[Rfam]
The family of this 103-nucleotide RNA from Paraglaciecola hydrolytica is "t44 RNA". From the family's description: This family consists of a number of bacterial RNA genes of between 135 and 170 bases in length. The t44 gene has been identified in several species of enteric bacteria but homologs have also been identified in Pseudomonas and Coxiella species. The t44 gene is found between the map and rpsB genes in all species in the full alignment apart from Shigella flexneri.

RNA sequence: CGAAACUAACUUAAAUAACACACAUAUAUCGACACAGUGUUCGGGGUGUUUUCUACUAGUUUAUCAGUAGAGGAUCGAGUACUGGGAUAUAUGGAGGCCUAAC
Numbered sequence: 001c002g003a004a005a006c007u008a009a010c011u012u013a014a015a016u017a018a019c020a021c022a023c024a025u026a027u028a029u030c031g032a033c034a035c036a037g038u039g040u041u042c043g044g045g046g047u048g049u050u051u052u053c054u055a056c057u058a059g060u061u062u063a064u065c066a067g068u069a070g071a072g073g074a075u076c077g078a079g080u081a082c083u084g085g086g087a088u089a090u091a092u093g094g095a096g097g098c099c100u101a102a103c
Base pairs, nucleotide, nucleotide: 023093024092025091026090027089028088029087030086035084036083037082038081039080040079041078042077043076048075049074050073051072052071053070054069055068056067

It is annotated as a small RNA.
NCBI's taxonomy places the organism under Bacteria, Pseudomonadota, Alteromonadales, Alteromonadaceae, Paraglaciecola.